[Rfam]
The record is a 77-nucleotide RNA sequence from Bagarius yarrelli, which matches "mir-27 microRNA precursor family" in Rfam. A reference for the family is Yao et al. (2008), "MicroRNA profile of Marek's disease virus-transformed T-cell line MSB-1: predominance of virus-encoded microRNAs", J Virol. Rfam links the family to the GO terms RISC complex and miRNA-mediated post-transcriptional gene silencing. The source organism's lineage runs through Eukaryota, Craniata, Clupeocephala, Siluroidei and Bagarius. The family has 82 seed sequences and 1,440 matches in Rfam 15.1. The base pairs follow the family's consensus structure, which was predicted with RNAalifold. A search with the family's covariance model found it, with a score of 69 bits.
RNA sequence: UGUGGUAGCAGGACUUAACCACCUGUGAACAGUGUGCUAGAAUUUAAUGUUCACAGUGGUUAAGUUCUGCCCCCCUA
Numbered sequence: 001u002g003u004g005g006u007a008g009c010a011g012g013a014c015u016u017a018a019c020c021a022c023c024u025g026u027g028a029a030c031a032g033u034g035u036g037c038u039a040g041a042a043u044u045u046a047a048u049g050u051u052c053a054c055a056g057u058g059g060u061u062a063a064g065u066u067c068u069g070c071c072c073c074c075c076u077a
Stems, first nucleotide, its partner, number of pairs: 011067010025054007